[Rfam]
RNA sequence: AACCACCGGCUAGGCCGGUGGUUCUAAAAAGCUUUUAGCUUUGAACAAAAUAAAACCUCCUUGAUAUAAUUAAACCCGGUCGGCCAACCAAAUUUAAUUAAUCAAGGAGG
Numbered sequence: 001a002a003c004c005a006c007c008g009g010c011u012a013g014g015c016c017g018g019u020g021g022u023u024c025u026a027a028a029a030a031g032c033u034u035u036u037a038g039c040u041u042u043g044a045a046c047a048a049a050a051u052a053a054a055a056c057c058u059c060c061u062u063g064a065u066a067u068a069a070u071u072a073a074a075c076c077c078g079g080u081c082g083g084c085c086a087a088c089c090a091a092a093u094u095u096a097a098u099u100a101a102u103c104a105a106g107g108a109g110g
Stems, first nucleotide, its partner, number of pairs: 001023010028042006059110003062104004068099003072095003078089003
The record is a 110-nucleotide RNA sequence, which matches "STnc490 Hfq binding RNA" in Rfam.
Rfam classes the family as a small RNA.